[Rfam]
RNA sequence: UUAGAAACUUUAGCGCCAAGCACCGCAAAGACGGUUAACGAGGUGGUGGGUGAUCGAAAAUUCGGCGGAUGCCCAUCCGUGGAUACAGCUGCGUAUUGAGGAAGAAAAAGCAUGAAGUAAUUCAUGUGUACAAAGGUUCUCAAACUGUAUGUA
Numbered sequence: 001u002u003a004g005a006a007a008c009u010u011u012a013g014c015g016c017c018a019a020g021c022a023c024c025g026c027a028a029a030g031a032c033g034g035u036u037a038a039c040g041a042g043g044u045g046g047u048g049g050g051u052g053a054u055c056g057a058a059a060a061u062u063c064g065g066c067g068g069a070u071g072c073c074c075a076u077c078c079g080u081g082g083a084u085a086c087a088g089c090u091g092c093g094u095a096u097u098g099a100g101g102a103a104g105a106a107a108a109a110g111c112a113u114g115a116a117g118u119a120a121u122u123c124a125u126g127u128g129u130a131c132a133a134a135g136g137u138u139c140u141c142a143a144a145c146u147g148u149a150u151g152u153a
Stems, first nucleotide, its partner, number of pairs: 001027001045077005054065004078093005096143007110127007
The family of this 153-nucleotide sequence from Agathobacter ruminis is "glmS glucosamine-6-phosphate activated ribozyme aptamer".
A reference for the family is Jansen et al. (2006), "Backbone and nucleobase contacts to glucosamine-6-phosphate in the glmS ribozyme", Nat Struct Mol Biol.
By type it is a riboswitch.
About the family: This entry contains a glucosamine-6-phosphate activated ribozyme that is found in the mRNA for GlmS. GlmS is an enzyme that uses fructose-6-phosphate and glutamine to generate glucosamine-6-phosphate. The ribozyme catalyses self cleavage of the glmS mRNA that is thought to regulate GlmS activity.
The base pairs follow the family's consensus structure, which is taken from published work.